Plastid-rps18 3UTR RNA: a 57-nucleotide RNA from Turnera subulata. The literature on the family includes a 2023 paper in Plant Commun by Richter et al., "Retrograde signaling in plants: A critical review focusing on the GUN pathway and beyond". Plastid rps18 is a non-coding RNA (ncRNA) present in plastids. It was identified as a short stem-loop motif in the 3 prime untranslate region (3UTR) of rps18 gene.

RNA sequence: AGCUGGUAUUUUACGAUUAAGAAGCAACUGCCCCUUAUAUAGGUUAUUGAUGAAUUU
Numbered sequence: 001a002g003c004u005g006g007u008a009u010u011u012u013a014c015g016a017u018u019a020a021g022a023a024g025c026a027a028c029u030g031c032c033c034c035u036u037a038u039a040u041a042g043g044u045u046a047u048u049g050a051u052g053a054a055u056u057u
Base pairs, nucleotide, nucleotide: 018037019036020035021034024031025030